RNA sequence: ACAUUGGUGCAUGGUGGUGGGCUCGCUGAAAACGCGGCCUCGACCAGUCAUGUGAAAAGACACGACCAGGAAGCCGCCCGAUCUGAGGCGGCUUUUUU
Numbered sequence: 001a002c003a004u005u006g007g008u009g010c011a012u013g014g015u016g017g018u019g020g021g022c023u024c025g026c027u028g029a030a031a032a033c034g035c036g037g038c039c040u041c042g043a044c045c046a047g048u049c050a051u052g053u054g055a056a057a058a059g060a061c062a063c064g065a066c067c068a069g070g071a072a073g074c075c076g077c078c079c080g081a082u083c084u085g086a087g088g089c090g091g092c093u094u095u096u097u098u
Stems, first nucleotide, its partner, number of pairs: 012046004017041001019040004024036003051064004071094008079085002
RNA: RcsR1 sRNA